Rfam assigns this 92-nucleotide sequence from Paenalcaligenes hominis to the family "Selenocysteine transfer RNA". NCBI's taxonomy places the organism under Bacteria, Pseudomonadati, Pseudomonadota, Alcaligenaceae, Paenalcaligenes. The base pairs follow the family's consensus structure, which is taken from published work. Clan: tRNA clan.
[Rfam]
RNA sequence: GGAAAGCAUUCGUGUCUGGUGAUGCGGCUGGGCUUCAAACCCAGUUGGGGGUGUUAGACACUCCUAGGUAGGUUCGACUCCUGCUGCUUUCC
Numbered sequence: 001g002g003a004a005a006g007c008a009u010u011c012g013u014g015u016c017u018g019g020u021g022a023u024g025c026g027g028c029u030g031g032g033c034u035u036c037a038a039a040c041c042c043a044g045u046u047g048g049g050g051g052u053g054u055u056a057g058a059c060a061c062u063c064c065u066a067g068g069u070a071g072g073u074u075c076g077a078c079u080c081c082u083g084c085u086g087c088u089u090u091c092c
Stems, first nucleotide, its partner, number of pairs: 001092008011026006027045006047065005069083004
For this family Rfam cites "Eukaryotic selenocysteine tRNA has the 9/4 secondary structure" (Mizutani and Goto, FEBS Lett, 2000).